The family of this 114-nucleotide RNA sequence from Aerococcus sp. Group 1 is "PyrR binding site".
RNA sequence: UUUGCCUUUAAACCUGUCCCGUGAGGCAGGCAAGGAGACUUAUAUAAAAAAGGGAUUAGUCUAUACAUGACUAGUCUUUUCGUCGAGCCUCCUUGUAUAGGAGGCUUUUUUAGU
Numbered sequence: 001u002u003u004g005c006c007u008u009u010a011a012a013c014c015u016g017u018c019c020c021g022u023g024a025g026g027c028a029g030g031c032a033a034g035g036a037g038a039c040u041u042a043u044a045u046a047a048a049a050a051a052g053g054g055a056u057u058a059g060u061c062u063a064u065a066c067a068u069g070a071c072u073a074g075u076c077u078u079u080u081c082g083u084c085g086a087g088c089c090u091c092c093u094u095g096u097a098u099a100g101g102a103g104g105c106u107u108u109u110u111u112a113g114u
Base pairs, nucleotide, nucleotide: 003037005035006034007033008032013030014029015028016027017026018025050080051079052078053077054076055075056074057073058072059071060070061069085107086106087105088104089103090102091101092100093099
About this RNA: The family's consensus secondary structure is taken from published work. Gene Ontology terms of the family: pyrimidine nucleobase biosynthetic process and pyrimidine nucleobase transport. About the family: This family represents the PyrR binding site and terminator structure. This RNA structure is found upstream of a variety of genes involved in pyrimidine biosynthesis and transport. The alignment also includes a portion of the antiterminator structure. Rfam classes the family as a cis-regulatory element. A search with the family's covariance model found it, with a score of 62 bits.